[Rfam]
RNA sequence: CGUCGGACACCGCCGAACCGGGCACCGGCGACCGCCGGUACCCGGACCGGGGACCCACCGCAGGACUGGGGUGAAGCGCGACCGUGCGUCGCGCCGGGCGAGUUCCCCGCCCGAACCCGACAGCUAACCCGGUAGGCGGUCGAGGAGAACAGGA
Numbered sequence: 001c002g003u004c005g006g007a008c009a010c011c012g013c014c015g016a017a018c019c020g021g022g023c024a025c026c027g028g029c030g031a032c033c034g035c036c037g038g039u040a041c042c043c044g045g046a047c048c049g050g051g052g053a054c055c056c057a058c059c060g061c062a063g064g065a066c067u068g069g070g071g072u073g074a075a076g077c078g079c080g081a082c083c084g085u086g087c088g089u090c091g092c093g094c095c096g097g098g099c100g101a102g103u104u105c106c107c108c109g110c111c112c113g114a115a116c117c118c119g120a121c122a123g124c125u126a127a128c129c130c131g132g133u134a135g136g137c138g139g140u141c142g143a144g145g146a147g148a149a150c151a152g153g154a
Stems, first nucleotide, its partner, number of pairs: 011138004018045005046133006056068002069118003077093004096112004
RNA: c-di-AMP riboswitch aptamer (ydaO/yuaA leader)